[Rfam]
RNA sequence: CUUUCAAUUCUUUCUGUGUUGCUAC
Numbered sequence: 001c002u003u004u005c006a007a008u009u010c011u012u013u014c015u016g017u018g019u020u021g022c023u024a025c
Base pairs, nucleotide, nucleotide: 005021006020007019008018
Dot-bracket structure: ....((((.........))))....
CRISPR RNA direct repeat element: a 25-nucleotide RNA sequence from Staphylothermus marinus. The family has 3 seed sequences and 138 matches in Rfam 15.1. Rfam's curators put it in the seed alignment. Gene Ontology term of the family: defense response. The base pairs follow the family's consensus structure, which was predicted with WAR. The organism belongs to Staphylothermus marinus, within Archaea.